RNA sequence: GGCUUCAACAUCCCCGCCGGUUGGGCGCGGCUUUUUCGGUUAGUUGCGAAGAGGGCGCGUAGUGAAUCGGCUGUAGCU
Numbered sequence: 001g002g003c004u005u006c007a008a009c010a011u012c013c014c015c016g017c018c019g020g021u022u023g024g025g026c027g028c029g030g031c032u033u034u035u036u037c038g039g040u041u042a043g044u045u046g047c048g049a050a051g052a053g054g055g056c057g058c059g060u061a062g063u064g065a066a067u068c069g070g071c072u073g074u075a076g077c078u
Base pairs, nucleotide, nucleotide: 001078002077003076004075006073007072013064014062016071017070018069019068020067021066022065023063025060026059027058028057029056031054032053033052034051035050036049037048038047
Rfam assigns this 78-nucleotide sequence to the family "nadA riboswitch". Rfam's curators put it in the seed alignment. The literature on the family includes a 2020 paper in RNA by Huang et al., "Structure and ligand binding of the ADP-binding domain of the NAD(+) riboswitch".